[Rfam]
RNA sequence: GGCCUCCCUCUGUGGGGCAAUCUAUCUUGGAGACCCCCAUUGAUUGCCCUGCAGAGGGUGGCC
Number, nucleotide and partner (000 for none) at each position: 001g063002g062003c061004c060005u000006c058007c057008c056009u055010c054011u053012g052013u051014g050015g049016g048017g047018c046019a045020a044021u043022c042023u000024a040025u039026c000027u000028u000029g035030g034031a000032g000033a000034c030035c029036c000037c000038c000039a025040u024041u000042g022043a021044u020045u019046g018047c017048c016049c015050u014051g013052c012053a011054g010055a009056g008057g007058g006059u000060g004061g003062c002063c001
A member of the RNA family "mir-9242 microRNA precursor family" from Cnephaeus nilssonii, 63 nucleotides long.
The family's consensus secondary structure was predicted with RNAalifold.